Source information: radC RNA: a 148-nucleotide sequence from Pseudomonas aeruginosa. Rfam classes the family as a cis-regulatory element. It is one of the family's seed sequences.
[Rfam]
RNA sequence: UCCUUUGAGCCGUGAGCUGCUGACGUUGUCGGCAUCCCUCCAGUAGCCGUGAUCUGCGAGGCUACAGCACGGAUUACCGUGUAGAUCACUCCCUAGGUCGCACCAGCUUCCGGAAGCGCGAUCAAUCGACCAUCAGGUUGAUGGAAGC
Numbered sequence: 001u002c003c004u005u006u007g008a009g010c011c012g013u014g015a016g017c018u019g020c021u022g023a024c025g026u027u028g029u030c031g032g033c034a035u036c037c038c039u040c041c042a043g044u045a046g047c048c049g050u051g052a053u054c055u056g057c058g059a060g061g062c063u064a065c066a067g068c069a070c071g072g073a074u075u076a077c078c079g080u081g082u083a084g085a086u087c088a089c090u091c092c093c094u095a096g097g098u099c100g101c102a103c104c105a106g107c108u109u110c111c112g113g114a115a116g117c118g119c120g121a122u123c124a125a126u127c128g129a130c131c132a133u134c135a136g137g138u139u140g141a142u143g144g145a146a147g148c
Stems, first nucleotide, its partner, number of pairs: 012038001014036001019033006043065006051087004067082006118148002125142003129138003